This 129-nucleotide RNA sequence from Weizmannia acidilactici belongs to the Rfam family "Ribosomal protein L20 leader". A search with the family's covariance model found it, with a score of 65 bits. This family is a putative r-protein leader autoregulatory structure found in B. subtilis and other low-GC Gram-positive bacteria.
RNA sequence: UGUGGAAAGAAGGAGCAGCCCGCUUCUCACCUGUUGACGCAUUUUGUGCAGUUGCCAGGUUUGGAUCAAGACGUUUAUGGCUAUGAAUAUGCUAAGCGCGGGUGCCUUUUCCUGCGCUUUUUUCGUAUG
Numbered sequence: 001u002g003u004g005g006a007a008a009g010a011a012g013g014a015g016c017a018g019c020c021c022g023c024u025u026c027u028c029a030c031c032u033g034u035u036g037a038c039g040c041a042u043u044u045u046g047u048g049c050a051g052u053u054g055c056c057a058g059g060u061u062u063g064g065a066u067c068a069a070g071a072c073g074u075u076u077a078u079g080g081c082u083a084u085g086a087a088u089a090u091g092c093u094a095a096g097c098g099c100g101g102g103u104g105c106c107u108u109u110u111c112c113u114g115c116g117c118u119u120u121u122u123u124c125g126u127a128u129g
Base pairs, nucleotide, nucleotide: 011027012026013025014024015023016022029060030059031058036053037052038051039049040048097116098115099114100113101112102111